[Rfam]
RNA sequence: AUGUACCAAGCGCCCACUGCGGUUCUGGGCGCGCCGUCCGCGCCCAUCUGACAGCUCUCGCUACGUUUUGUUAGCC
Numbered sequence: 001a002u003g004u005a006c007c008a009a010g011c012g013c014c015c016a017c018u019g020c021g022g023u024u025c026u027g028g029g030c031g032c033g034c035c036g037u038c039c040g041c042g043c044c045c046a047u048c049u050g051a052c053a054g055c056u057c058u059c060g061c062u063a064c065g066u067u068u069u070g071u072u073a074g075c076c
Stems, first nucleotide, its partner, number of pairs: 002016002006012001020036004025031001048074007
RNA: Xanthomonas sRNA sX9
Organism: Xanthomonas oryzae